Acido-Lenti-1 RNA: a 45-nucleotide RNA sequence from Edaphobacter acidisoli.
[Rfam]
RNA sequence: CCUGGGGUUUCACCCCAGGCUGGUAUGAGUCGGGCUUACAGCCCU
Dot-bracket structure: ((((((((...))))))))............(((((...))))).
Pairs were carried over by alignment from the consensus structure, which is taken from published work. It is annotated as a small RNA. The match comes from Rfam's covariance-model search (37 bits).